[Rfam]
Nucleotides: 104
Stems, first nucleotide, its partner, number of pairs: 001054010012020002027044007083104002086101001088099001091096001
Number, partner (000 for none) and nucleotide at each position: 001054g002053a003052a004051g005050g006049c007048g008047g009046c010045g011000a012020c013019g014000c015000c016000c017000c018000c019013c020012g021000a022000c023000u024000u025000g026000a027044g028043a029042c030041u031040g032039g033038c034000g035000a036000a037000a038033g039032c040031c041030a042029g043028u044027c045010c046009g047008c048007c049006g050005c051004c052003u053002u054001c055000g056000c057000a058000c059000c060000c061000c062000u063000u064000u065000g066000u067000u068000g069000a070000u071000g072000c073000g074000a075000a076000c077000u078000c079000a080000g081000g082000c083104g084103g085000a086101c087000c088099g089000g090000g091096u092000g093000a094000c095000c096091g097000g098000a099088c100000c101086g102000c103084c104083u